[Rfam]
RNA sequence: GGACGUGAGGGCGAUCUGGCUGCGACAUCUGUCACCCCAUUGAUCGCCAGGGUUGAUUCGGCUGAUCUGGCUGGCUAGGCGGGUGUCCCCUUCCUCCCUCACCGCUCCAUGUGCAUCCCUCCCGAAGCUGCGUGCUCGGUUGAAGAGGACGACCAUCCCCAACAGAGGAGGACCGUUCCUCGGUCAAGGGUAUACGAGUAGCUGUGCUCCCUGCUAGAACCUGCAAACAAGCUCUUAAGACUCUCUCUGUUGGAGUUCCCAUUGUGCCUCAGCGGUAAUGAACCCUACUAGUAUUCAUGAGAAUUUGGAUUCCAU
Numbered sequence: 001g002g003a004c005g006u007g008a009g010g011g012c013g014a015u016c017u018g019g020c021u022g023c024g025a026c027a028u029c030u031g032u033c034a035c036c037c038c039a040u041u042g043a044u045c046g047c048c049a050g051g052g053u054u055g056a057u058u059c060g061g062c063u064g065a066u067c068u069g070g071c072u073g074g075c076u077a078g079g080c081g082g083g084u085g086u087c088c089c090c091u092u093c094c095u096c097c098c099u100c101a102c103c104g105c106u107c108c109a110u111g112u113g114c115a116u117c118c119c120u121c122c123c124g125a126a127g128c129u130g131c132g133u134g135c136u137c138g139g140u141u142g143a144a145g146a147g148g149a150c151g152a153c154c155a156u157c158c159c160c161a162a163c164a165g166a167g168g169a170g171g172a173c174c175g176u177u178c179c180u181c182g183g184u185c186a187a188g189g190g191u192a193u194a195c196g197a198g199u200a201g202c203u204g205u206g207c208u209c210c211c212u213g214c215u216a217g218a219a220c221c222u223g224c225a226a227a228c229a230a231g232c233u234c235u236u237a238a239g240a241c242u243c244u245c246u247c248u249g250u251u252g253g254a255g256u257u258c259c260c261a262u263u264g265u266g267c268c269u270c271a272g273c274g275g276u277a278a279u280g281a282a283c284c285c286u287a288c289u290a291g292u293a294u295u296c297a298u299g300a301g302a303a304u305u306u307g308g309a310u311u312c313c314a315u
Base pairs, nucleotide, nucleotide: 001108002107003106005102006101007100008099009098010097011096013093014092018090019089024087025086026085027084028083029082030081031080032079033078035074036073037070038069039068042067043066044065045064046062047061048060116171117170118168119167120166121165122139123138124137125136127135128134140162141161142160147158148157149156201273202272203271206267207266209264212261213260221255222254224252227250228249229248230246231245299315301312302311303310304309

The family of this 315-nucleotide sequence from Catagonus wagneri is "7SK RNA".
Clan: 7SK clan.
Lineage of the source: Eukaryota > Opisthokonta > Deuterostomia > Dipnotetrapodomorpha > Catagonus.
The base pairs follow the family's consensus structure, which is taken from published work.
The family has 45 seed sequences and 49,373 matches in Rfam 15.1.